The record is a 443-nucleotide part of an RNA from Thermoplasmatales archaeon E-plasma, which matches "Archaeal large subunit ribosomal RNA" in Rfam. It scores 2733 bits against the family's covariance model.
RNA sequence: CCCCCCGAUACUACCCGCAGGUAGACCUCAGCAGAGAUGUUUGGCGAGGUAGAGCGACCGAAUAGUUGGUUAGCGAUCGAAAGGUCGCGCCGACUUAUCGAACUCCGAACUUGUCAAAAUCGUAGAAGCUGGGUGCUAGAGUUCAGGGAUAAGCUCUGAAUUCGUGAAGGGAACAUCCUAGACGAGGGUUAAGGUCCCUAAAUCUAACUAAGUGCAAAUUAAAGGGGUUUACAGCCUAAAACAGUGUGGAGGUAGGCUUAGAAGCAGCCAUCCUUUAAAGAGUGCGUAACAGCUCACUCACCGAGGCUAUAUGCUCCGAAGAUGGAAGGGGCUAAAGUUAGAUACCGAGACCUUCGAGCACCGAAAGGUGAUCUGGUAGGGGGGCGUGCCAUAUGGGCGGAAGUUUCUUCGAGAGGAGGGAUGGACCGUAUGGUAUCGCGGAU
Numbered sequence: 001c002c003c004c005c006c007g008a009u010a011c012u013a014c015c016c017g018c019a020g021g022u023a024g025a026c027c028u029c030a031g032c033a034g035a036g037a038u039g040u041u042u043g044g045c046g047a048g049g050u051a052g053a054g055c056g057a058c059c060g061a062a063u064a065g066u067u068g069g070u071u072a073g074c075g076a077u078c079g080a081a082a083g084g085u086c087g088c089g090c091c092g093a094c095u096u097a098u099c100g101a102a103c104u105c106c107g108a109a110c111u112u113g114u115c116a117a118a119a120u121c122g123u124a125g126a127a128g129c130u131g132g133g134u135g136c137u138a139g140a141g142u143u144c145a146g147g148g149a150u151a152a153g154c155u156c157u158g159a160a161u162u163c164g165u166g167a168a169g170g171g172a173a174c175a176u177c178c179u180a181g182a183c184g185a186g187g188g189u190u191a192a193g194g195u196c197c198c199u200a201a202a203u204c205u206a207a208c209u210a211a212g213u214g215c216a217a218a219u220u221a222a223a224g225g226g227g228u229u230u231a232c233a234g235c236c237u238a239a240a241a242c243a244g245u246g247u248g249g250a251g252g253u254a255g256g257c258u259u260a261g262a263a264g265c266a267g268c269c270a271u272c273c274u275u276u277a278a279a280g281a282g283u284g285c286g287u288a289a290c291a292g293c294u295c296a297c298u299c300a301c302c303g304a305g306g307c308u309a310u311a312u313g314c315u316c317c318g319a320a321g322a323u324g325g326a327a328g329g330g331g332c333u334a335a336a337g338u339u340a341g342a343u344a345c346c347g348a349g350a351c352c353u354u355c356g357a358g359c360a361c362c363g364a365a366a367g368g369u370g371a372u373c374u375g376g377u378a379g380g381g382g383g384g385c386g387u388g389c390c391a392u393a394u395g396g397g398c399g400g401a402a403g404u405u406u407c408u409u410c411g412a413g414a415g416g417a418g419g420g421a422u423g424g425a426c427c428g429u430a431u432g433g434u435a436u437c438g439c440g441g442a443u
Stems, first nucleotide, its partner, number of pairs: 001384006011024005026135001027133006036121003040118008052106001053104002060099002064095006073088006139163009168179003183356007193346003202343007224317005230311002233308004244301003248297001250274003255269003275279001280295001284293002357374002359370004385438001387435010403422008
The family's consensus secondary structure is taken from published work.